Shown here is a 247-nucleotide part of an RNA from methanogenic archaeon ISO4-H5, a member of the family "Archaeal large subunit ribosomal RNA".

RNA sequence: AUGUCUGACGAGAAGGAUCCUUUAGUACGAGAGGAACAGGGAUUCGGUGCCUCUAGUUUAUCAGUUGUCCGACCGGGCAGGCUGAGUAGCCACGCACCAGUGGAUAAGAGCUGAACGCAUCUAAGCUCGAAGCCACCUUGAAAAAGAGACAUCUUAAGAUAUCCGUAUAUGACGGGUUUGAUAGAAGCCGGAUGUAAGUACCGAGGUUCGCCGAGGUAUUCAGUCCUGGCUCACUAACAUCUUUGCC
Numbered sequence: 001a002u003g004u005c006u007g008a009c010g011a012g013a014a015g016g017a018u019c020c021u022u023u024a025g026u027a028c029g030a031g032a033g034g035a036a037c038a039g040g041g042a043u044u045c046g047g048u049g050c051c052u053c054u055a056g057u058u059u060a061u062c063a064g065u066u067g068u069c070c071g072a073c074c075g076g077g078c079a080g081g082c083u084g085a086g087u088a089g090c091c092a093c094g095c096a097c098c099a100g101u102g103g104a105u106a107a108g109a110g111c112u113g114a115a116c117g118c119a120u121c122u123a124a125g126c127u128c129g130a131a132g133c134c135a136c137c138u139u140g141a142a143a144a145a146g147a148g149a150c151a152u153c154u155u156a157a158g159a160u161a162u163c164c165g166u167a168u169a170u171g172a173c174g175g176g177u178u179u180g181a182u183a184g185a186a187g188c189c190g191g192a193u194g195u196a197a198g199u200a201c202c203g204a205g206g207u208u209c210g211c212c213g214a215g216g217u218a219u220u221c222a223g224u225c226c227u228g229g230c231u232c233a234c235u236a237a238c239a240u241c242u243u244u245g246c247c
Stems, first nucleotide, its partner, number of pairs: 001152006009140004015045008046098005054092001056090001061085005066079005101135003108128005157242004161177005182236003186231004190226003198219005205212001
A search with the family's covariance model found it, with a score of 2706 bits.